[Rfam]
RNA sequence: UCUAGAACUCGAGGUAUGGGUUGAACACUAAAUAGUGUUUGGGCUGCAGGACAAAUUCAAACUUCUCUGUUGUUGCUAUAAUUUGAACUUGAAAACGGCUUUUUUAAAUCUUGGACUUCUCAUGAAAGUUCUACGCCUAUGCCUUACCUUUCCAUC
Numbered sequence: 001u002c003u004a005g006a007a008c009u010c011g012a013g014g015u016a017u018g019g020g021u022u023g024a025a026c027a028c029u030a031a032a033u034a035g036u037g038u039u040u041g042g043g044c045u046g047c048a049g050g051a052c053a054a055a056u057u058c059a060a061a062c063u064u065c066u067c068u069g070u071u072g073u074u075g076c077u078a079u080a081a082u083u084u085g086a087a088c089u090u091g092a093a094a095a096c097g098g099c100u101u102u103u104u105u106a107a108a109u110c111u112u113g114g115a116c117u118u119c120u121c122a123u124g125a126a127a128g129u130u131c132u133a134c135g136c137c138u139a140u141g142c143c144u145u146a147c148c149u150u151u152c153c154a155u156c
Stems, first nucleotide, its partner, number of pairs: 003154001005152003009146001011145010022133002025130001027129003035123003041119003045115001048112004054105002059100001062098002068092001072088003